[Rfam]
RNA: TPP riboswitch aptamer (THI element)
RNA sequence: CGCCCACCUUCGGGGUGGCUUUAGGAGCCUGAGAUACCGACAGCAGCAUGGCUGCCCAUCGGCGACCCGUAGAACCUGAUCCGGUUAGUACCGGCGUAGGGAACAGGUGCUGCCGAUUCU
Numbered sequence: 001c002g003c004c005c006a007c008c009u010u011c012g013g014g015g016u017g018g019c020u021u022u023a024g025g026a027g028c029c030u031g032a033g034a035u036a037c038c039g040a041c042a043g044c045a046g047c048a049u050g051g052c053u054g055c056c057c058a059u060c061g062g063c064g065a066c067c068c069g070u071a072g073a074a075c076c077u078g079a080u081c082c083g084g085u086u087a088g089u090a091c092c093g094g095c096g097u098a099g100g101g102a103a104c105a106g107g108u109g110c111u112g113c114c115g116a117u118u119c120u
Stems, first nucleotide, its partner, number of pairs: 006108004011069004017029005037062004075100004081094004